Rfam assigns this 33-nucleotide RNA sequence to the family "S4-Flavobacteria ribosomal protein leader". The family's consensus secondary structure is taken from published work. It is annotated as a cis-regulatory leader. The literature on the family includes a 2020 paper in BMC Microbiol by Eckert and Weinberg, "Discovery of 20 novel ribosomal leader candidates in bacteria and archaea".

[Rfam]
RNA sequence: CGCUGGCGAAGGAUUGACCUUAAUUCCCAGCAC
Numbered sequence: 001c002g003c004u005g006g007c008g009a010a011g012g013a014u015u016g017a018c019c020u021u022a023a024u025u026c027c028c029a030g031c032a033c
Stems, first nucleotide, its partner, number of pairs: 002031005008026001009021004
Dot-bracket structure: .(((((.(((((.....))))....))))))..